[Rfam]
RNA sequence: GAUGGAGGAUUCCAAAGGGAUCGCAUUGAUCUGAUAACAUAAACACGGCUUGAUAAAACUGGUUUUGUUUUUUGGAUCAUGUGAUCCCUUAGGAAUUUUCCAU
Numbered sequence: 001g002a003u004g005g006a007g008g009a010u011u012c013c014a015a016a017g018g019g020a021u022c023g024c025a026u027u028g029a030u031c032u033g034a035u036a037a038c039a040u041a042a043a044c045a046c047g048g049c050u051u052g053a054u055a056a057a058a059c060u061g062g063u064u065u066u067g068u069u070u071u072u073u074g075g076a077u078c079a080u081g082u083g084a085u086c087c088c089u090u091a092g093g094a095a096u097u098u099u100c101c102a103u
Stems, first nucleotide, its partner, number of pairs: 002103005008097006015090007023082004028078005036071001
Record summary: Rfam assigns this 103-nucleotide RNA sequence from Olea europaea to the family "mir-393 microRNA precursor family". The source organism's lineage runs through Eukaryota, Viridiplantae, Embryophyta, Mesangiospermae and Olea europaea. Its family is annotated with RISC complex and miRNA-mediated post-transcriptional gene silencing in the Gene Ontology.